[Rfam]
RNA sequence: AAGCCAUGACGAUAAACGCGCUGAUUGUGAGGCUUGGUCCCUCACACUCCUCUGAUAAUGACGAGUUGUAUAGCGCUUCUGAGCUU
Number, nucleotide and partner (000 for none) at each position: 001a086002a085003g084004c083005c000006a000007u000008g000009a000010c000011g000012a000013u000014a000015a000016a000017c000018g000019c000020g000021c000022u000023g000024a000025u000026u000027g000028u000029g000030a000031g000032g000033c000034u000035u000036g000037g000038u000039c000040c000041c000042u000043c000044a000045c000046a000047c000048u000049c000050c000051u000052c000053u000054g000055a000056u000057a000058a000059u000060g000061a000062c000063g000064a000065g000066u000067u000068g000069u000070a000071u000072a000073g000074c000075g000076c000077u000078u000079c000080u000081g000082a000083g004084c003085u002086u001